RNA sequence: GGAUUGAUAUUGACAUUUAAAUAUGUAUUUCUUGGAAGAUUGAACAAAAUGAAUGAAAAUGUUAUGGCAUUGUCCUCAUUGAACUGAGAUCC
Numbered sequence: 001g002g003a004u005u006g007a008u009a010u011u012g013a014c015a016u017u018u019a020a021a022u023a024u025g026u027a028u029u030u031c032u033u034g035g036a037a038g039a040u041u042g043a044a045c046a047a048a049a050u051g052a053a054u055g056a057a058a059a060u061g062u063u064a065u066g067g068c069a070u071u072g073u074c075c076u077c078a079u080u081g082a083a084c085u086g087a088g089a090u091c092c
Stems, first nucleotide, its partner, number of pairs: 001092005026055005032047003

Rfam assigns this 92-nucleotide RNA from Oryctolagus cuniculus to the family "Small nucleolar RNA SNORD116". Pairs were carried over by alignment from the consensus structure, which was predicted with PFOLD. The literature on the family includes a 2000 paper in Proc Natl Acad Sci U S A by Cavaille et al., "Identification of brain-specific and imprinted small nucleolar RNA genes exhibiting an unusual genomic organization". Rfam links the family to the GO terms RNA processing and nucleolus. The source organism's lineage runs through Eukaryota, Bilateria, Teleostomi, Mammalia and Oryctolagus.